[Rfam]
Nucleotides: 079
Base pairs, nucleotide, nucleotide: 003076011036012035016031017030018029019028020027021026034065040071041070044068045067046066047063048062049061
Number, partner (000 for none) and nucleotide at each position: 001000a002000c003076c004000c005000g006000a007000a008000c009000a010000g011036g012035c013000a014000a015000a016031c017030c018029c019028g020027u021026c022000g023000c024000g025000a026021g027020g028019c029018g030017g031016g032000g033000u034065c035012g036011c037000a038000a039000a040071g041070c042000c043000a044068g045067g046066g047063g048062c049061c050000u051000c052000c053000c054000c055000g056000a057000u058000g059000g060000a061049g062048g063047c064000a065034g066046c067045c068044c069000a070041g071040c072000c073000g074000c075000c076003g077000a078000a079000g

This 79-nucleotide RNA from Actinoplanes teichomyceticus belongs to the Rfam family "c-di-GMP-I-GGC riboswitch aptamer". Lineage of the source: Bacteria > Bacillati > Actinomycetota > Actinomycetes > Actinoplanes. It scores 60 bits against the family's covariance model.